[Rfam]
RNA sequence: UAACUGUUCUUAACACUCCUCAAACCAAGACCUAUAGGGUGUAUAAAAACGUCUUUCAUAUCCUGGACUUAGGGUGUCUAGGAAAUAGUAAAACCA
Numbered sequence: 001u002a003a004c005u006g007u008u009c010u011u012a013a014c015a016c017u018c019c020u021c022a023a024a025c026c027a028a029g030a031c032c033u034a035u036a037g038g039g040u041g042u043a044u045a046a047a048a049a050c051g052u053c054u055u056u057c058a059u060a061u062c063c064u065g066g067a068c069u070u071a072g073g074g075u076g077u078c079u080a081g082g083a084a085a086u087a088g089u090a091a092a093a094c095c096a
Stems, first nucleotide, its partner, number of pairs: 014041005027055005062082007